[Rfam]
The record is a 126-nucleotide RNA sequence from Verminephrobacter sp. Larva24, which matches "TPP riboswitch aptamer (THI element)" in Rfam. A search with the family's covariance model found it, with a score of 58 bits. About the family: Vitamin B(1) in its active form thiamin pyrophosphate (TPP) is an essential coenzyme that is synthesised by coupling of pyrimidine and thiazole moieties in bacteria.
RNA sequence: GCCGCUGCUCCGGGGUGCGCGCAAGCGCUGAGAUGCGAGGCGAUGCCGAAGAAAUUCGGCGGGCCUGGCGAACCCGACGAACUUGAUCCGGUUCAUACCGGCGGAAGAAGAGCCGACCUCCUUGCC
Numbered sequence: 001g002c003c004g005c006u007g008c009u010c011c012g013g014g015g016u017g018c019g020c021g022c023a024a025g026c027g028c029u030g031a032g033a034u035g036c037g038a039g040g041c042g043a044u045g046c047c048g049a050a051g052a053a054a055u056u057c058g059g060c061g062g063g064c065c066u067g068g069c070g071a072a073c074c075c076g077a078c079g080a081a082c083u084u085g086a087u088c089c090g091g092u093u094c095a096u097a098c099c100g101g102c103g104g105a106a107g108a109a110g111a112g113c114c115g116a117c118c119u120c121c122u123u124g125c126c
Stems, first nucleotide, its partner, number of pairs: 007113004011076004016070001017028004035069002038066004082107003088101004